RNA sequence: GGCCUCCCAGUGCUUACCACAGGUUGUUUUCUUAGACUGGACUCUCUAAAAAGAGGAGGCAGAGCAGACCUUCCCCAUAUACAUUUUAGCUAAGGCCUCAUUCCUGGUCUGUAUUAUGAAUAGGGAGACACAG
Numbered sequence: 001g002g003c004c005u006c007c008c009a010g011u012g013c014u015u016a017c018c019a020c021a022g023g024u025u026g027u028u029u030u031c032u033u034a035g036a037c038u039g040g041a042c043u044c045u046c047u048a049a050a051a052a053g054a055g056g057a058g059g060c061a062g063a064g065c066a067g068a069c070c071u072u073c074c075c076c077a078u079a080u081a082c083a084u085u086u087u088a089g090c091u092a093a094g095g096c097c098u099c100a101u102u103c104c105u106g107g108u109c110u111g112u113a114u115u116a117u118g119a120a121u122a123g124g125g126a127g128a129c130a131c132a133g
Base pairs, nucleotide, nucleotide: 002060003059004058005057006056007055021043022042026037027036028035029034073125074124075123077121078120087111088110089109091107093105094104095103
Small nucleolar RNA SNORA51: a 133-nucleotide RNA sequence from Oryctolagus cuniculus. Gene Ontology terms of the family: RNA processing and nucleolus. Lineage of the source: Eukaryota > Opisthokonta > Eumetazoa > Craniata > Oryctolagus. ACA51 is a member of the H/ACA class of snoRNA that guide the sites of modification of uridines to pseudouridines.